[Rfam]
RNA sequence: UAAUCAUCCAGAGCAGCCGAGGGACUGGCCCGUUGAAGCUGCGGCAACCUUCCGGCAGGAAAGGUGCCAACUCCAGCGUCACUUGCGGGUGACGGCAGAUGAUAU
Numbered sequence: 001u002a003a004u005c006a007u008c009c010a011g012a013g014c015a016g017c018c019g020a021g022g023g024a025c026u027g028g029c030c031c032g033u034u035g036a037a038g039c040u041g042c043g044g045c046a047a048c049c050u051u052c053c054g055g056c057a058g059g060a061a062a063g064g065u066g067c068c069a070a071c072u073c074c075a076g077c078g079u080c081a082c083u084u085g086c087g088g089g090u091g092a093c094g095g096c097a098g099a100u101g102a103u104a105u
Stems, first nucleotide, its partner, number of pairs: 003103006013042005021031003025076004043068004048064002050061004072097001077094006
RNA: SAM riboswitch aptamer (S box leader)